raiA-hairpin RNA: a 47-nucleotide RNA sequence. Pairs were carried over by alignment from the consensus structure, which is taken from published work.
RNA sequence: CACCGAGUCCGAGGCCCUGGUGACCACCGGGCCUGGUGCAAAAGGGA
Number, nucleotide and partner (000 for none) at each position: 001c000002a000003c000004c000005g000006a000007g000008u000009c000010c000011g000012a000013g033014g032015c031016c030017c029018u000019g028020g027021u000022g000023a000024c000025c000026a000027c020028c019029g017030g016031g015032c014033c013034u000035g000036g000037u000038g000039c000040a000041a000042a000043a000044g000045g000046g000047a000